[Rfam]
RNA sequence: AGCGGGCAACGGAAUCCCAAAAGCAGCUGUUGUCUCCAGAGCAUUCCAGCUGCACUUGGAUUUCGUUCCCUGCU
Numbered sequence: 001a002g003c004g005g006g007c008a009a010c011g012g013a014a015u016c017c018c019a020a021a022a023g024c025a026g027c028u029g030u031u032g033u034c035u036c037c038a039g040a041g042c043a044u045u046c047c048a049g050c051u052g053c054a055c056u057u058g059g060a061u062u063u064c065g066u067u068c069c070c071u072g073c074u
Stems, first nucleotide, its partner, number of pairs: 001074005009066009019057002023053007

The family of this 74-nucleotide RNA from Mus musculus is "mir-191 microRNA precursor family". Lineage of the source: Eukaryota > Metazoa > Mammalia > Muridae > Mus. On this family, see Kim et al., Proc Natl Acad Sci U S A 2004: "Identification of many microRNAs that copurify with polyribosomes in mammalian neurons". It is one of the family's seed sequences.